[Rfam]
RNA sequence: GUUGACUCAAUACUGCAAUGCUCGCUUCGCACAGAACAUCACCGUUCUCUCUCGCGAGCGGGUAAGGUCUGAGUAUGCUGUCUCCCUCGAUUGGCUCUAGCUGGGUCUGGCCGUAAUAGCCAAGCAACGUACCAGACAUUUCCCUCCGUCGCUCUUGUUCCCAAAGAUACUCCUUUUUGGGACGAGGGAUGAGCGUCGGACGGGUUGAAAGUCGUUGCGGAGAUUGGGCUCGUGUGCUUGACGCAUCCAUCCGCUGUCUGGAGUACUGUCGGCGCAUAUGUGUACCUUCGGGAACGCAGGAAAGACACUCGCGGGGCUUCGCUGCAAUGGCAGUGCUGUCUUCGACGAACCUUUCUAUAGCCGGACGCCAGUGUCGACUGCCCCUCCCGGCUGUGUUGUUCCCUUGGUCUGAAGGCCCUUCGAGGCAAUUCCCCGUCGCCCGUGGCCUGAGUAGCUCCAUAUACGAGUGCUCACCGGGUGUACGUGCUGGAUCCGCGUUUACCGCGUAGAACGUUAAUCAUAUACGUUGCAUUUGUCUAUGACAAAUACCAGCCUUGCGGUGGCAGCCAGUGGGGUCCGGGUUAGGAGUCAUUGGUAGGACGUACGAGGGACAUCUCUCGACGACUGGAUGGAUGCUCGCAUCCAGGUCCUUCAGCGCACUUUGUGGCGCGCCACUGGGCGUCCUCGACCGACCUUCGGGUUCGGGUUAGACGUCCGUGGCGAAACUCGAUUCAGACUAUUCUUGGUUAAC
Numbered sequence: 001g002u003u004g005a006c007u008c009a010a011u012a013c014u015g016c017a018a019u020g021c022u023c024g025c026u027u028c029g030c031a032c033a034g035a036a037c038a039u040c041a042c043c044g045u046u047c048u049c050u051c052u053c054g055c056g057a058g059c060g061g062g063u064a065a066g067g068u069c070u071g072a073g074u075a076u077g078c079u080g081u082c083u084c085c086c087u088c089g090a091u092u093g094g095c096u097c098u099a100g101c102u103g104g105g106u107c108u109g110g111c112c113g114u115a116a117u118a119g120c121c122a123a124g125c126a127a128c129g130u131a132c133c134a135g136a137c138a139u140u141u142c143c144c145u146c147c148g149u150c151g152c153u154c155u156u157g158u159u160c161c162c163a164a165a166g167a168u169a170c171u172c173c174u175u176u177u178u179g180g181g182a183c184g185a186g187g188g189a190u191g192a193g194c195g196u197c198g199g200a201c202g203g204g205u206u207g208a209a210a211g212u213c214g215u216u217g218c219g220g221a222g223a224u225u226g227g228g229c230u231c232g233u234g235u236g237c238u239u240g241a242c243g244c245a246u247c248c249a250u251c252c253g254c255u256g257u258c259u260g261g262a263g264u265a266c267u268g269u270c271g272g273c274g275c276a277u278a279u280g281u282g283u284a285c286c287u288u289c290g291g292g293a294a295c296g297c298a299g300g301a302a303a304g305a306c307a308c309u310c311g312c313g314g315g316g317c318u319u320c321g322c323u324g325c326a327a328u329g330g331c332a333g334u335g336c337u338g339u340c341u342u343c344g345a346c347g348a349a350c351c352u353u354u355c356u357a358u359a360g361c362c363g364g365a366c367g368c369c370a371g372u373g374u375c376g377a378c379u380g381c382c383c384c385u386c387c388c389g390g391c392u393g394u395g396u397u398g399u400u401c402c403c404u405u406g407g408u409c410u411g412a413a414g415g416c417c418c419u420u421c422g423a424g425g426c427a428a429u430u431c432c433c434c435g436u437c438g439c440c441c442g443u444g445g446c447c448u449g450a451g452u453a454g455c456u457c458c459a460u461a462u463a464c465g466a467g468u469g470c471u472c473a474c475c476g477g478g479u480g481u482a483c484g485u486g487c488u489g490g491a492u493c494c495g496c497g498u499u500u501a502c503c504g505c506g507u508a509g510a511a512c513g514u515u516a517a518u519c520a521u522a523u524a525c526g527u528u529g530c531a532u533u534u535g536u537c538u539a540u541g542a543c544a545a546a547u548a549c550c551a552g553c554c555u556u557g558c559g560g561u562g563g564c565a566g567c568c569a570g571u572g573g574g575g576u577c578c579g580g581g582u583u584a585g586g587a588g589u590c591a592u593u594g595g596u597a598g599g600a601c602g603u604a605c606g607a608g609g610g611a612c613a614u615c616u617c618u619c620g621a622c623g624a625c626u627g628g629a630u631g632g633a634u635g636c637u638c639g640c641a642u643c644c645a646g647g648u649c650c651u652u653c654a655g656c657g658c659a660c661u662u663u664g665u666g667g668c669g670c671g672c673c674a675c676u677g678g679g680c681g682u683c684c685u686c687g688a689c690c691g692a693c694c695u696u697c698g699g700g701u702u703c704g705g706g707u708u709a710g711a712c713g714u715c716c717g718u719g720g721c722g723a724a725a726c727u728c729g730a731u732u733c734a735g736a737c738u739a740u741u742c743u744u745g746g747u748u749a750a751c
Base pairs, nucleotide, nucleotide: 001751002750003749004748007745009743013667014666015665016664017663018662020059021058022057023056024055034047035046036045037044069735070734071733072732073731082222083221084220085219093107094106095105096104097103108122109121110120111119124218125217126216127215128214129213142204143203144202670722671721672720673719674718675717
RNA: Nuclear RNase P
Organism: Armillaria ostoyae